[Rfam]
RNA: narK RNA
Organism: Pseudomonas knackmussii
RNA sequence: GGCCCGACCCUUGCUGAGCCAGGGACGCUGGUAGUCAACGGCGAUUACCCGAAUCACGACAAAGGCGUCGC
Numbered sequence: 001g002g003c004c005c006g007a008c009c010c011u012u013g014c015u016g017a018g019c020c021a022g023g024g025a026c027g028c029u030g031g032u033a034g035u036c037a038a039c040g041g042c043g044a045u046u047a048c049c050c051g052a053a054u055c056a057c058g059a060c061a062a063a064g065g066c067g068u069c070g071c
Base pairs, nucleotide, nucleotide: 030049031048032047033046034045035044036043